Shown here is a 359-nucleotide sequence, a member of the family "transfer-messenger RNA". The base pairs follow the family's consensus structure, which is taken from published work. The literature on the family includes a 2010 paper in RNA Biol by Mao et al., "Variations on the tmRNA gene".
RNA sequence: GGGGGUGAAAAGGUUUCGACGAGAGUAGAUGACAUAAAGGUUGCAUGCCGAGGUUUCCGCAGGCCUCGUUAAACAGGCGGAAACAAUUUAAUUGCCGAUGAAGAAUUGGCUCUAGCCGCUUAAUAAAGUGGCUCGUCCGGCUAAUUUGCGGUUCCGUCGAGUUAGCCCGACGUCAACAAACGGACUAUGCGCCUUACUUGUUCUCAAGGGGCAUGGCGCGAGAAUUAACUUGAGAUAGUCCGCGGUGAAUCCUGCAUAAGUGAGUCCUGUGGACGAAACACCAAAACUUAUGCUAAGCAUGUAGUAGCCUUUAUUUGAAGUGUUCUCGGACGCGGGUUCGAUUCCCGCCACCUCCAUUU
Numbered sequence: 001g002g003g004g005g006u007g008a009a010a011a012g013g014u015u016u017c018g019a020c021g022a023g024a025g026u027a028g029a030u031g032a033c034a035u036a037a038a039g040g041u042u043g044c045a046u047g048c049c050g051a052g053g054u055u056u057c058c059g060c061a062g063g064c065c066u067c068g069u070u071a072a073a074c075a076g077g078c079g080g081a082a083a084c085a086a087u088u089u090a091a092u093u094g095c096c097g098a099u100g101a102a103g104a105a106u107u108g109g110c111u112c113u114a115g116c117c118g119c120u121u122a123a124u125a126a127a128g129u130g131g132c133u134c135g136u137c138c139g140g141c142u143a144a145u146u147u148g149c150g151g152u153u154c155c156g157u158c159g160a161g162u163u164a165g166c167c168c169g170a171c172g173u174c175a176a177c178a179a180a181c182g183g184a185c186u187a188u189g190c191g192c193c194u195u196a197c198u199u200g201u202u203c204u205c206a207a208g209g210g211g212c213a214u215g216g217c218g219c220g221a222g223a224a225u226u227a228a229c230u231u232g233a234g235a236u237a238g239u240c241c242g243c244g245g246u247g248a249a250u251c252c253u254g255c256a257u258a259a260g261u262g263a264g265u266c267c268u269g270u271g272g273a274c275g276a277a278a279c280a281c282c283a284a285a286a287c288u289u290a291u292g293c294u295a296a297g298c299a300u301g302u303a304g305u306a307g308c309c310u311u312u313a314u315u316u317g318a319a320g321u322g323u324u325c326u327c328g329g330a331c332g333c334g335g336g337u338u339c340g341a342u343u344c345c346c347g348c349c350a351c352c353u354c355c356a357u358u359u
Stems, first nucleotide, its partner, number of pairs: 001355007020328008032316001034314010044301005049068005055082006114133006134172004139167005145161004151185004157179001189219005195213001197211001200236003204232001238274008247265001250263002254293004332348005